[Rfam]
RNA sequence: AUCGAGUUACCGCCUAAUCGGUGGUCGGGUGGGCAGCCCGAUCCCCGUGCCGGGGACCCAGGUGUGUGGGGUGAAUCCCUUUCGGUCACAAUGGCCGGCGGGGUAGGGCCGAUCUUCCCGGCCCGAACCCGUCAGCUAACCCGGUCGGCGGUCGGCAGGAAGAAA
Numbered sequence: 001a002u003c004g005a006g007u008u009a010c011c012g013c014c015u016a017a018u019c020g021g022u023g024g025u026c027g028g029g030u031g032g033g034c035a036g037c038c039c040g041a042u043c044c045c046c047g048u049g050c051c052g053g054g055g056a057c058c059c060a061g062g063u064g065u066g067u068g069g070g071g072u073g074a075a076u077c078c079c080u081u082u083c084g085g086u087c088a089c090a091a092u093g094g095c096c097g098g099c100g101g102g103g104u105a106g107g108g109c110c111g112a113u114c115u116u117c118c119c120g121g122c123c124c125g126a127a128c129c130c131g132u133c134a135g136c137u138a139a140c141c142c143g144g145u146c147g148g149c150g151g152u153c154g155g156c157a158g159g160a161a162g163a164a165a
Base pairs, nucleotide, nucleotide: 011150012149013148014147019047020046049145050144051143052142053141054140059068060067069130070129071128077103078102079101080100106124107123108122109121
Rfam assigns this 165-nucleotide RNA from Nocardia transvalensis to the family "c-di-AMP riboswitch aptamer (ydaO/yuaA leader)".
The match comes from Rfam's covariance-model search (79 bits).
Its family is annotated with cyclic-di-AMP binding and regulation of gene expression in the Gene Ontology.
The literature on the family includes a 2004 paper in Proc Natl Acad Sci U S A by Barrick et al., "New RNA motifs suggest an expanded scope for riboswitches in bacterial genetic control".